RNA sequence: GGAUCGGCAGGAGACAAAAAUGGCAUAAGAGAGGUACAGUGGGAGGCAGGAGAAAGACCAAUAUCUGCCACCCUUCUUUCUCUCUUAUGCGUUUUUGUCUCUCGCCGGUCA
Number, nucleotide and partner (000 for none) at each position: 001g000002g110003a109004u108005c000006g106007g105008c104009a000010g102011g101012a100013g099014a098015c097016a096017a095018a094019a093020a092021u091022g090023g000024c089025a088026u087027a086028a085029g084030a083031g082032a081033g080034g000035u000036a000037c000038a000039g000040u000041g077042g076043g075044a074045g073046g072047c000048a000049g069050g068051a066052g065053a064054a000055a062056g000057a000058c000059c000060a000061a000062u055063a000064u053065c052066u051067g000068c050069c049070a000071c000072c046073c045074u044075u043076c042077u041078u000079u000080c033081u032082c031083u030084c029085u028086u027087a026088u025089g024090c022091g021092u020093u019094u018095u017096u016097g015098u014099c013100u012101c011102u010103c000104g008105c007106c006107g000108g004109u003110c002111a000